[Rfam]
RNA sequence: UAAAGUGGGUAGCCUAAUUUAAAUUUCCGAAAUUUGAAGCGGAGGAACCAAUUUUUGGGGCUUAUCUUGUAAAAGGAUAAAGGAUAAAUGAGAAACUGCGUUUUCUUAGUUCAUUCUUCAUACUUCCGAUUUCAAGAGAGACACCUUCCAGUCUUAGCCCGUCAGCUAACUCCGUAGGCAAUGGAAGGAACCCCA
Numbered sequence: 001u002a003a004a005g006u007g008g009g010u011a012g013c014c015u016a017a018u019u020u021a022a023a024u025u026u027c028c029g030a031a032a033u034u035u036g037a038a039g040c041g042g043a044g045g046a047a048c049c050a051a052u053u054u055u056u057g058g059g060g061c062u063u064a065u066c067u068u069g070u071a072a073a074a075g076g077a078u079a080a081a082g083g084a085u086a087a088a089u090g091a092g093a094a095a096c097u098g099c100g101u102u103u104u105c106u107u108a109g110u111u112c113a114u115u116c117u118u119c120a121u122a123c124u125u126c127c128g129a130u131u132u133c134a135a136g137a138g139a140g141a142c143a144c145c146u147u148c149c150a151g152u153c154u155u156a157g158c159c160c161g162u163c164a165g166c167u168a169a170c171u172c173c174g175u176a177g178g179c180a181a182u183g184g185a186a187g188g189a190a191c192c193c194c195a
Stems, first nucleotide, its partner, number of pairs: 012179003018038009039175006049057002058160003066136004139154004

The record is a 195-nucleotide RNA from Tolypothrix bouteillei, which matches "c-di-AMP riboswitch aptamer (ydaO/yuaA leader)" in Rfam. Gene Ontology terms of the family: cyclic-di-AMP binding and regulation of gene expression. It scores 61 bits against the family's covariance model.